Notes: The record is an 80-nucleotide RNA sequence from Salvator merianae, which matches "mir-31 microRNA precursor family" in Rfam. Pairs were carried over by alignment from the consensus structure, which was predicted with RNAalifold. On this family, see Aravin et al., Dev Cell 2003: "The small RNA profile during Drosophila melanogaster development". Clan: mir-31 microRNA precursor family. The match comes from Rfam's covariance-model search (61 bits).

[Rfam]
RNA sequence: GACAGGAAAGAGGGCAAUAUGUUGGCAUAGCAGGUUCCUUGUUCAUCAGCUAUGCCAACAUCUUGCCUCCUCUCCAGCUC
Numbered sequence: 001g002a003c004a005g006g007a008a009a010g011a012g013g014g015c016a017a018u019a020u021g022u023u024g025g026c027a028u029a030g031c032a033g034g035u036u037c038c039u040u041g042u043u044c045a046u047c048a049g050c051u052a053u054g055c056c057a058a059c060a061u062c063u064u065g066c067c068u069c070c071u072c073u074c075c076a077g078c079u080c
Base pairs, nucleotide, nucleotide: 005075006074007073009071010070012068013067014066015065016064017063019061020060021059023057024056025055026054027053028052029051030050031049